[Rfam]
RNA sequence: GCCAUCAGUGCCUUAGCAGCACGUAAAUAUUGGAGUUGAAAUGGUCCCAAUAUUAGCUGUGCUGCUAGAGUAAUGCUGGC
Dot-bracket structure: ((((.(......((((((((((((.((((((((.((.......)).)))))))).).)))))))))))......).))))
Numbered sequence: 001g002c003c004a005u006c007a008g009u010g011c012c013u014u015a016g017c018a019g020c021a022c023g024u025a026a027a028u029a030u031u032g033g034a035g036u037u038g039a040a041a042u043g044g045u046c047c048c049a050a051u052a053u054u055a056g057c058u059g060u061g062c063u064g065c066u067a068g069a070g071u072a073a074u075g076c077u078g079g080c
Stems, first nucleotide, its partner, number of pairs: 001080004006075001013068011024056001026054008035045002

mir-15 microRNA precursor family: an 80-nucleotide RNA sequence from Hymenochirus boettgeri. On this family, see Lagos-Quintana et al., Science 2001: "Identification of novel genes coding for small expressed RNAs". The match comes from Rfam's covariance-model search (67 bits). Rfam links the family to the GO terms miRNA-mediated post-transcriptional gene silencing and RISC complex. About the family: This family represents the related mir-15a and mir-15b sequences. In humans miR-15a and miR-16 are clustered within 0.5 kb at 13q14. This region has been shown to be deleted in more than half of B cell chronic lymphocytic leukaemias (CLL). Both miR-15a and miR-16 are deleted or down-regulated in more than two thirds of CLL cases. The mature sequence is excised from the 5' arm of the hairpin.